A member of the RNA family "pemK RNA", 62 nucleotides long. Rfam's curators put it in the seed alignment. By type it is a cis-regulatory element.

RNA sequence: AUAAUGAUACUUCCGUCGAAGGACGGCUCGGCGAGAACCGCGGAGGGGUGAGACUCCCAUGA
Number, nucleotide and partner (000 for none) at each position: 001a000002u000003a000004a000005u000006g000007a000008u000009a000010c000011u000012u059013c026014c025015g024016u023017c000018g000019a000020a000021g000022g000023a016024c015025g014026g013027c045028u044029c043030g000031g041032c040033g039034a000035g000036a000037a000038c000039c033040g032041c031042g000043g029044a028045g027046g058047g057048g056049u000050g000051a000052g000053a000054c000055u000056c048057c047058c046059a012060u000061g000062a000